[Rfam]
RNA sequence: GGAGACUGACGGGAACGACCGUAUAGUACGAGAGGAACUACGGUUGGUGACCACUGGUGUACCGGUUGUCCGAGAGGGCAAAUGCCGGGCAGCUACGUCACACGGGGUAAGAGCUGAACGCAUCUAAGCUCGAAACCCACCUGGAAAAGAGUCUCCACUGAGUCCGCCCGUAGAAGACGGGAUCGAUAGACUCGGGGUGUACGCACCGAGGUAACGAGGUGUUCAGCCCGCGAGUACUAAUGGACGAAG
Dot-bracket structure: (((((((..((((..((((((((...............))))))))(((((...(((....((((((((((....)))))...)))))....))).)))))..(((....(((((...........)))))....))).))))......))))))).....((((.((((.......)))).....(((((((((((.....(((((..(....)..)))))....))).))))).)))..))))....
Archaeal large subunit ribosomal RNA: a 249-nucleotide part of an RNA from Salinirubellus salinus. A reference for the family is Yusupov et al. (2001), "Crystal structure of the ribosome at 5.5 A resolution", Science.